[Rfam]
RNA sequence: GGGGAGAGACUUAGAAUCCCCUUCGGGCAUUGUGUAAAUAGCGCCGCCUUUGGCCAGACGUCGCGGUUUGAGAAUC
Numbered sequence: 001g002g003g004g005a006g007a008g009a010c011u012u013a014g015a016a017u018c019c020c021c022u023u024c025g026g027g028c029a030u031u032g033u034g035u036a037a038a039u040a041g042c043g044c045c046g047c048c049u050u051u052g053g054c055c056a057g058a059c060g061u062c063g064c065g066g067u068u069u070g071a072g073a074a075u076c
Base pairs, nucleotide, nucleotide: 001021002020003019004018005017035070036069037068038067039066041064042063043062045060046059048057049056
RNA: L13-Bacteroidia ribosomal protein leader